[Rfam]
RNA sequence: UGUGGACAGAGGGAGCUUCCUUCAGUCCAGUUCGAGGCAGUUUGAGAGCUGAAAACACAUCUGCUGACUCGUUGGUUCGAGAACUCAUCGAAUAUUUAGGGUUGUGAUCGAUGGGUUUUUGAUUCAACGAUGCAGGAGUUGUGUUCAGUUUUUCCUGUCACGUCUUGGACUGAAGGGAGCUCCCUAUUUUCUAAUU
Numbered sequence: 001u002g003u004g005g006a007c008a009g010a011g012g013g014a015g016c017u018u019c020c021u022u023c024a025g026u027c028c029a030g031u032u033c034g035a036g037g038c039a040g041u042u043u044g045a046g047a048g049c050u051g052a053a054a055a056c057a058c059a060u061c062u063g064c065u066g067a068c069u070c071g072u073u074g075g076u077u078c079g080a081g082a083a084c085u086c087a088u089c090g091a092a093u094a095u096u097u098a099g100g101g102u103u104g105u106g107a108u109c110g111a112u113g114g115g116u117u118u119u120u121g122a123u124u125c126a127a128c129g130a131u132g133c134a135g136g137a138g139u140u141g142u143g144u145u146c147a148g149u150u151u152u153u154c155c156u157g158u159c160a161c162g163u164c165u166u167g168g169a170c171u172g173a174a175g176g177g178a179g180c181u182c183c184c185u186a187u188u189u190u191c192u193a194a195u196u
Base pairs, nucleotide, nucleotide: 013182014181015180016179017178018177019176020175023172024171025170026169027168028167029166036159061138062137064135065134066133070129071128072127073126078121
Overview: This 196-nucleotide RNA sequence from Salvia splendens belongs to the Rfam family "MIR159 microRNA precursor family". The literature on the family includes a 2006 paper in Genes Dev by Rajagopalan et al., "A diverse and evolutionarily fluid set of microRNAs in Arabidopsis thaliana". Gene Ontology terms of the family: miRNA-mediated post-transcriptional gene silencing and RISC complex. The base pairs follow the family's consensus structure, which was predicted with WAR. A search with the family's covariance model found it, with a score of 114 bits. The organism belongs to core Calosphace, within Eukaryota.